[Rfam]
The family of this 75-nucleotide RNA from Coffea arabica is "Plastid-ycf2 5UTR RNA". Plastid ycf2 is a non-coding RNA (ncRNA) recognised in plastids. It was found in the prime untranslated region (5UTR) of ycf2 genes, it presents a tRNA-like motif which suggests it can be involved in mRNA maturation, particularly involved in defining the precise 5' end of the transcript.
RNA sequence: GUGCAUUCAGUAGGAAUUGAACCUACAAAUUCGCCAAUUUUGAGUUGGGCGCUUUAACCAUUCAGUUGUGGAUGC
Number, nucleotide and partner (000 for none) at each position: 001g000002u000003g075004c074005a073006u072007u071008c070009a000010g026011u025012a024013g023014g022015a000016a000017u000018u000019g000020a000021a000022c014023c013024u012025a011026c010027a000028a000029a000030u000031u000032c000033g000034c000035c000036a000037a000038u000039u000040u000041u068042g067043a000044g066045u065046u064047g063048g062049g061050c000051g059052c000053u000054u000055u000056a000057a000058c000059c051060a000061u049062u048063c047064a046065g045066u044067u042068g041069u000070g008071g007072a006073u005074g004075c003
A search with the family's covariance model found it, with a score of 84 bits. By type it is a cis-regulatory element.